[Rfam]
RNA sequence: GCCAUGGGGGCCGCGAUCCCCCCGUGAGGCUUCGGCCCAAGCGUCGCAUCCCUGACCCCUCGCACAAGGAUGCCCCGAUG
Number, nucleotide and partner (000 for none) at each position: 001g000002c000003c000004a000005u024006g023007g022008g021009g020010g019011c000012c000013g000014c000015g000016a000017u000018c000019c010020c009021c008022c007023c006024g005025u000026g000027a000028g000029g000030c000031u000032u000033c000034g000035g000036c000037c000038c000039a000040a000041g000042c000043g000044u000045c000046g073047c072048a071049u070050c069051c068052c000053u000054g000055a000056c000057c000058c000059c000060u000061c000062g000063c000064a000065c000066a000067a000068g051069g050070a049071u048072g047073c046074c000075c000076c000077g000078a000079u000080g000
The family of this 80-nucleotide RNA is "chrB-a RNA".
By type it is a cis-regulatory element.